A member of the RNA family "Pseudomonas sRNA CrcZ" from Pseudomonas rhizosphaerae, 395 nucleotides long. Taxonomically the source falls in Pseudomonas (Bacteria, Pseudomonadati, Gammaproteobacteria, Pseudomonadales). The literature on the family includes a 2006 paper in Nucleic Acids Res by Livny et al., "Identification of 17 Pseudomonas aeruginosa sRNAs and prediction of sRNA-encoding genes in 10 diverse pathogens using the bioinformatic tool sRNAPredict2".
Nucleotides: 395
Stems, first nucleotide, its partner, number of pairs: 049084002052081003099218005113211003131184007155168005237251002240248001273377004279304004322367004341358007
Number, partner (000 for none) and nucleotide at each position: 001000a002000c003000a004000a005000g006000a007000a008000c009000a010000a011000c012000a013000a014000c015000a016000a017000g018000c019000a020000a021000g022000c023000a024000a025000a026000c027000c028000c029000a030000u031000a032000a033000c034000a035000a036000g037000a038000a039000c040000a041000a042000g043000a044000c045000g046000a047000a048000u049084c050083g051000a052081c053080u054079c055000a056000c057000g058000c059000a060000u061000a062000a063000c064000a065000a066000g067000a068000a069000c070000a071000a072000c073000a074000c075000g076000g077000c078000g079054g080053a081052g082000g083050c084049g085000c086000a087000g088000c089000u090000a091000a092000c093000u094000g095000a096000u097000u098000c099218u100217u101216u102215u103214g104000g105000a106000g107000a108000g109000g110000c111000g112000u113211u114210g115209u116000u117000u118000u119000u120000g121000g122000g123000g124000a125000a126000a127000c128000c129000c130000g131184c132183a133182g134181c135180c136179a137178g138000g139000c140000a141000g142000a143000g144000a145000a146000c147000u148000a149000c150000a151000a152000c153000a154000a155168c156167u157166g158165c159164u160000u161000u162000g163000a164159a165158g166157c167156a168155g169000a170000a171000g172000c173000c174000a175000g176000a177000a178137c179136u180135g181134g182133u183132u184131g185000g186000a187000u188000c189000a190000c191000a192000g193000c194000g195000a196000u197000c198000a199000u200000c201000a202000c203000a204000g205000c206000a207000c208000a209115g210114c211113g212000a213000c214103c215102a216101a217100a218099g219000c220000a221000a222000u223000c224000c225000g226000u227000u228000u229000g230000c231000u232000c233000u234000u235000g236000c237251u238250c239000c240248c241000g242000a243000a244000u245000a246000g247000g248240g249000a250238g251237a252000c253000a254000u255000c256000c257000c258000c259000g260000a261000a262000c263000c264000a265000a266000g267000g268000u269000u270000c271000g272000g273377c274376g275375g276374a277000c278000a279304g280303g281302g282301c283000a284000c285000u286000c287000a288000a289000c290000a291000a292000a293000a294000a295000c296000a297000a298000a299000a300000a301282g302281c303280c304279c305000g306000a307000c308000a309000a310000a311000a312000a313000a314000u315000a316000a317000a318000a319000a320000c321000a322367g323366a324365g325364c326000a327000u328000g329000c330000a331000a332000c333000u334000a335000c336000u337000u338000c339000u340000u341358g342357g343356g344355g345354a346353g347352c348000u349000u350000c351000g352347g353346c354345u355344c356343c357342c358341c359000u360000u361000g362000u363000a364325g365324u366323u367322u368000c369000c370000a371000g372000c373000u374276u375275u376274c377273g378000u379000c380000c381000u382000g383000c384000c385000c386000c387000a388000g389000u390000g391000c392000g393000c394000c395000a